Fungal signal recognition particle RNA: a 289-nucleotide sequence from Lachnellula occidentalis.
NCBI's taxonomy places the organism under Eukaryota, Pezizomycotina, Helotiales, Lachnaceae, Lachnellula.
The family's RNA type in Rfam is non-coding RNA gene.
RNA sequence: CGGCUGUAAUGGUCACAACGUUAAGAAGAUAUCAGCAUCCCAUAUCUUUCUAACCAUUCCGACCUUUGGGUCACCACCAACGGUGCCCAGUCCGAACACGGCGGUGGCUUCCCACUCGUGCAGGUAACUCACGAUGCUGGUGGAGCCUUAAGCAAUGAAGAACACUUCUCGAGGGAGGCUUUACUCUGCAGAGAGAUCUUCACCGUCGGGUGGCGGUAUUGGAUUACACUUGUUGCGUGGUUUGGUUGGAGGGUUUGGGUUGAGCGUCGACUUUUUUUUUUGCUUUUUU
Numbered sequence: 001c002g003g004c005u006g007u008a009a010u011g012g013u014c015a016c017a018a019c020g021u022u023a024a025g026a027a028g029a030u031a032u033c034a035g036c037a038u039c040c041c042a043u044a045u046c047u048u049u050c051u052a053a054c055c056a057u058u059c060c061g062a063c064c065u066u067u068g069g070g071u072c073a074c075c076a077c078c079a080a081c082g083g084u085g086c087c088c089a090g091u092c093c094g095a096a097c098a099c100g101g102c103g104g105u106g107g108c109u110u111c112c113c114a115c116u117c118g119u120g121c122a123g124g125u126a127a128c129u130c131a132c133g134a135u136g137c138u139g140g141u142g143g144a145g146c147c148u149u150a151a152g153c154a155a156u157g158a159a160g161a162a163c164a165c166u167u168c169u170c171g172a173g174g175g176a177g178g179c180u181u182u183a184c185u186c187u188g189c190a191g192a193g194a195g196a197u198c199u200u201c202a203c204c205g206u207c208g209g210g211u212g213g214c215g216g217u218a219u220u221g222g223a224u225u226a227c228a229c230u231u232g233u234u235g236c237g238u239g240g241u242u243u244g245g246u247u248g249g250a251g252g253g254u255u256u257g258g259g260u261u262g263a264g265c266g267u268c269g270a271c272u273u274u275u276u277u278u279u280u281u282g283c284u285u286u287u288u289u
Base pairs, nucleotide, nucleotide: 002014003013004012017286018285020283021282023280026278027277028276029275031273045253046252047251048250049249050248052246054244061072062071063070064069075239076238077237078235079234080233081232082231083229084228085227087222088221089220090219091218092216093215094214096211097210099208100207101206102205103204104203106147108145109144110143111142112140113139114138116134117133118132119131120130122129123128148152156202157201158200159199160198161197166195167194168193169192170191175186176185177184
Record summary
The base pairs follow the family's consensus structure, which is taken from published work. The literature on the family includes a 2009 paper in RNA Biol by Rosenblad et al., "Kinship in the SRP RNA family".